[Rfam]
The family of this 145-nucleotide RNA from Jaculus jaculus is "Small nucleolar RNA SNORA33". The family's consensus secondary structure was predicted with PFOLD.
RNA sequence: GAGGCAGCCAAUCGGUCUGCUUAUCUGAAUGUGUUUUCUGCAAAAAAAAAAAAAAAAAAUGUAGAGAAAGCUGGCAAUAGCGAUGCCAUGUUAUGACCCUUAAGGAGAGCUGAGGUUGUUAGGGUCCCUGAAAAUGGCUACAAUA
Numbered sequence: 001g002a003g004g005c006a007g008c009c010a011a012u013c014g015g016u017c018u019g020c021u022u023a024u025c026u027g028a029a030u031g032u033g034u035u036u037u038c039u040g041c042a043a044a045a046a047a048a049a050a051a052a053a054a055a056a057a058a059a060u061g062u063a064g065a066g067a068a069a070g071c072u073g074g075c076a077a078u079a080g081c082g083a084u085g086c087c088a089u090g091u092u093a094u095g096a097c098c099c100u101u102a103a104g105g106a107g108a109g110c111u112g113a114g115g116u117u118g119u120u121a122g123g124g125u126c127c128c129u130g131a132a133a134a135u136g137g138c139u140a141c142a143a144u145a
Stems, first nucleotide, its partner, number of pairs: 003075001005073003016044001018042003085138004098124006105117002
Dot-bracket structure: ..(.(((........(.(((...................))).)..........................))).).........((((.........((((((.((.........)).))))))..........)))).......

Notes
It scores 81 bits against the family's covariance model.